[Rfam]
RNA sequence: CUUCAAGAGAUUCAACUGUCAAGCUCCGACUUUGGUUGAACGCCAACCCCAUGUUCACGGGUGGCUCGGAUGACGAAGCGGUCUGCAUCGCGCCUUUUUGGCGCUGUUGGGUGCAGGCAAGAGCAAGUA
Dot-bracket structure: ((((....(.((((((.....((......))...)))))))(((..(((.........))).))).........))))..(((((((((....................)))))))))...........

Description: Shown here is a 129-nucleotide RNA from Rothia nasimurium, a member of the family "SAM (S-adenosyl methionine) riboswitch aptamer". From the family's description: SAM-IV is a mRNA element that regulates gene expression via direct sensing of S-adenosylmethionine (SAM or AdoMet). SAM-IV riboswitches share conserved nucleotide positions with the previously described SAM-I riboswitches sequence analysis and molecular recognition experiments suggest that SAM-I and SAM-IV riboswitches share similar ligand binding sites, but have different scaffolds. A search with the family's covariance model found it, with a score of 64 bits. The organism belongs to Rothia, within Bacteria.